[Rfam]
The family of this 156-nucleotide sequence from Aliikangiella marina is "Ribosomal S15 leader".

RNA sequence: UGGCAUGGCUGAAUUAGUGAUUGGCUGUGUCGAUUGAUGUUAACUAGACCAACAAAUGGCUGAAAGUCAUAGAGCGGUCUUAAAUUUGGAGUAAAUUCAAUGUCACUAACUGCUGAAGCAAAAUCAGAGAUUAUUGCAGAAUAUGCACGUGGAGAA
Numbered sequence: 001u002g003g004c005a006u007g008g009c010u011g012a013a014u015u016a017g018u019g020a021u022u023g024g025c026u027g028u029g030u031c032g033a034u035u036g037a038u039g040u041u042a043a044c045u046a047g048a049c050c051a052a053c054a055a056a057u058g059g060c061u062g063a064a065a066g067u068c069a070u071a072g073a074g075c076g077g078u079c080u081u082a083a084a085u086u087u088g089g090a091g092u093a094a095a096u097u098c099a100a101u102g103u104c105a106c107u108a109a110c111u112g113c114u115g116a117a118g119c120a121a122a123a124u125c126a127g128a129g130a131u132u133a134u135u136g137c138a139g140a141a142u143a144u145g146c147a148c149g150u151g152g153a154g155a156a
Base pairs, nucleotide, nucleotide: 007061008060009059010058011057086109087108088107089106091104
Annotation:
By type it is a cis-regulatory leader. Its family is annotated with regulation of translation, ncRNA-mediated in the Gene Ontology. The family's consensus secondary structure is taken from published work. The E. coli Ribosomal S15 gene 5' UTR can form two alternative structures. One that is a series of three hairpins, The other includes a pseudoknot. This structure causes translational regulation of the S15 protein. The alignment of this family contains only the final two hairpins which are conserved in other species, and also includes the complete region that forms the alternate structures.